[Rfam]
RNA sequence: GUGAAGUGAUGAGCUGAUUCAUGGUCUGUCAAUCCACUGAUUGUGAAAGCCGUGAUGACGAUUUGAAAUCCUAGAAGGUUCUGAUCGC
Numbered sequence: 001g002u003g004a005a006g007u008g009a010u011g012a013g014c015u016g017a018u019u020c021a022u023g024g025u026c027u028g029u030c031a032a033u034c035c036a037c038u039g040a041u042u043g044u045g046a047a048a049g050c051c052g053u054g055a056u057g058a059c060g061a062u063u064u065g066a067a068a069u070c071c072u073a074g075a076a077g078g079u080u081c082u083g084a085u086c087g088c
Stems, first nucleotide, its partner, number of pairs: 001088004
RNA: Small nucleolar RNA snoR14
Organism: Apostasia shenzhenica